[Rfam]
RNA: c-di-AMP riboswitch aptamer (ydaO/yuaA leader)
RNA sequence: UUAUACAAAUCGCUGAAUCCAGAAAUGGAAUGGGAGAACUAAUUUUUCGGGGUGAAUCACGUAAGUGUAGGGCAAUAUAGUCCGAAUCCGUCAGCUAUCUCGUAAGCGUCACUAGGAACUAGU
Numbered sequence: 001u002u003a004u005a006c007a008a009a010u011c012g013c014u015g016a017a018u019c020c021a022g023a024a025a026u027g028g029a030a031u032g033g034g035a036g037a038a039c040u041a042a043u044u045u046u047u048c049g050g051g052g053u054g055a056a057u058c059a060c061g062u063a064a065g066u067g068u069a070g071g072g073c074a075a076u077a078u079a080g081u082c083c084g085a086a087u088c089c090g091u092c093a094g095c096u097a098u099c100u101c102g103u104a105a106g107c108g109u110c111a112c113u114a115g116g117a118a119c120u121a122g123u
Base pairs, nucleotide, nucleotide: 011108012107013106014105018029019028020027030103031102032101033100034099035098040049050089051088052087058067059066060065070083071082072081073080